[Rfam]
RNA sequence: CAUCCCUAUGAUGAUUGCUUUCUAUAUUUAACGUUAAAAGUAGACUGAUCUUUAAGGAAGACAAAAUCGAUUCUGAGGGAUG
Numbered sequence: 001c002a003u004c005c006c007u008a009u010g011a012u013g014a015u016u017g018c019u020u021u022c023u024a025u026a027u028u029u030a031a032c033g034u035u036a037a038a039a040g041u042a043g044a045c046u047g048a049u050c051u052u053u054a055a056g057g058a059a060g061a062c063a064a065a066a067u068c069g070a071u072u073c074u075g076a077g078g079g080a081u082g
Stems, first nucleotide, its partner, number of pairs: 001082006
RNA: Small nucleolar RNA R21